STAXI RNA: a 155-nucleotide RNA from Photorhabdus laumondii.
The family's RNA type in Rfam is small RNA.
Rfam's curators put it in the seed alignment.

RNA sequence: UGUUGUCUUCGGACAAUCGCCAAUAUUCCCGCAGUCUGAGAGGAAUGCCUUUGGGUGACUGCUCUCAAUGUCAGAAAGGUCUGAGACUGACGCUUUCGUGUGACCUGUCACAAAGCCAUUGUAGCCUGAGAGGUGGUGCCUGCGGGCGGUAAACC
Numbered sequence: 001u002g003u004u005g006u007c008u009u010c011g012g013a014c015a016a017u018c019g020c021c022a023a024u025a026u027u028c029c030c031g032c033a034g035u036c037u038g039a040g041a042g043g044a045a046u047g048c049c050u051u052u053g054g055g056u057g058a059c060u061g062c063u064c065u066c067a068a069u070g071u072c073a074g075a076a077a078g079g080u081c082u083g084a085g086a087c088u089g090a091c092g093c094u095u096u097c098g099u100g101u102g103a104c105c106u107g108u109c110a111c112a113a114a115g116c117c118a119u120u121g122u123a124g125c126c127u128g129a130g131a132g133g134u135g136g137u138g139c140c141u142g143c144g145g146g147c148g149g150u151a152a153a154c155c
Stems, first nucleotide, its partner, number of pairs: 002017006025046005031062006047056003070091005077106005092101002115137005122151002125149002138147003